[Rfam]
RNA sequence: GAUUGAGGUAGAGGUUGCAUUUACUAAGAGUAAUAUUGAAGAGGUCGGAAGCCAAUGAAUCAAUAUAAAAGGAGUAAGUGCCGAAGUUCUAGUGUCCAAAGCUAGUGCUGGGACUGUAUUUAAUAAGUACAGGACUGUCAUCAAAAUUAUCCCAAGUUUUGAUGGAGAGCUAUCUUAAGU
Numbered sequence: 001g002a003u004u005g006a007g008g009u010a011g012a013g014g015u016u017g018c019a020u021u022u023a024c025u026a027a028g029a030g031u032a033a034u035a036u037u038g039a040a041g042a043g044g045u046c047g048g049a050a051g052c053c054a055a056u057g058a059a060u061c062a063a064u065a066u067a068a069a070a071g072g073a074g075u076a077a078g079u080g081c082c083g084a085a086g087u088u089c090u091a092g093u094g095u096c097c098a099a100a101g102c103u104a105g106u107g108c109u110g111g112g113a114c115u116g117u118a119u120u121u122a123a124u125a126a127g128u129a130c131a132g133g134a135c136u137g138u139c140a141u142c143a144a145a146a147u148u149a150u151c152c153c154a155a156g157u158u159u160u161g162a163u164g165g166a167g168a169g170c171u172a173u174c175u176u177a178a179g180u
Base pairs, nucleotide, nucleotide: 006175007174008173009172010171011170017081018080019079020078021077022076023075024074025073033066034065035064036063037062038061039060085109086108087107089105090104091103092102093101110136111135114132115131116130117129118128119127120126138165139164140163141162142161143160144159145158146157147156
Rfam assigns this 180-nucleotide RNA from Terrisporobacter othiniensis to the family "Lysine riboswitch aptamer".